A member of the RNA family "Lysine riboswitch aptamer" from Kurthia sibirica, 178 nucleotides long. Pairs were carried over by alignment from the consensus structure, which is taken from published work.
RNA sequence: AGUGAUGAUAGAGGUGCAGGUUUCAAUAGUAGCGAAUGGGAGAGCGUAGUAGCUCGAUGAAUAUUCGUGAAAGGGGAAACUGCCGAAGUGAGAGGUAUACUACCUUCCUUUCGCUGGUUCUUCAUUUAAGAGAUGAAGAAUUGUCAGAGUCGAACAACUCUGGAGGGCUAUCACACAU
Numbered sequence: 001a002g003u004g005a006u007g008a009u010a011g012a013g014g015u016g017c018a019g020g021u022u023u024c025a026a027u028a029g030u031a032g033c034g035a036a037u038g039g040g041a042g043a044g045c046g047u048a049g050u051a052g053c054u055c056g057a058u059g060a061a062u063a064u065u066c067g068u069g070a071a072a073g074g075g076g077a078a079a080c081u082g083c084c085g086a087a088g089u090g091a092g093a094g095g096u097a098u099a100c101u102a103c104c105u106u107c108c109u110u111u112c113g114c115u116g117g118u119u120c121u122u123c124a125u126u127u128a129a130g131a132g133a134u135g136a137a138g139a140a141u142u143g144u145c146a147g148a149g150u151c152g153a154a155c156a157a158c159u160c161u162g163g164a165g166g167g168c169u170a171u172c173a174c175a176c177a178u
Stems, first nucleotide, its partner, number of pairs: 006173006016083004021078004032068007087115009097105001116142011144163007

It scores 126 bits against the family's covariance model.